RNA sequence: AUUUGAUGAUGCAGACAUUGUAUCUGCAACUCCCCUAAUCUUUCCCAAGCUUCGAAGAAUUCCUCUGUAUGCUUCUGUCUAAAAGUUUGGAUCUUGUUUCUCAACUC
Numbered sequence: 001a002u003u004u005g006a007u008g009a010u011g012c013a014g015a016c017a018u019u020g021u022a023u024c025u026g027c028a029a030c031u032c033c034c035c036u037a038a039u040c041u042u043u044c045c046c047a048a049g050c051u052u053c054g055a056a057g058a059a060u061u062c063c064u065c066u067g068u069a070u071g072c073u074u075c076u077g078u079c080u081a082a083a084a085g086u087u088u089g090g091a092u093c094u095u096g097u098u099u100c101u102c103a104a105c106u107c
Stems, first nucleotide, its partner, number of pairs: 004104001005102002057074002060071001
Dot-bracket structure: ...(((..................................................((.(..........).))..........................)).)...
A member of the RNA family "Plant small nucleolar RNA R71" from Thalictrum thalictroides, 107 nucleotides long. The literature on the family includes a 2003 paper in Trends Plant Sci by Brown et al., "Plant snoRNAs: functional evolution and new modes of gene expression". By type it is a C/D-box small nucleolar RNA. Rfam 15.1 lists 278,378 matches to the family in 216 species. NCBI's taxonomy places the organism under Eukaryota, Viridiplantae, Tracheophyta, Spermatophyta, Thalictrum. Its family is annotated with RNA processing and nucleolus in the Gene Ontology.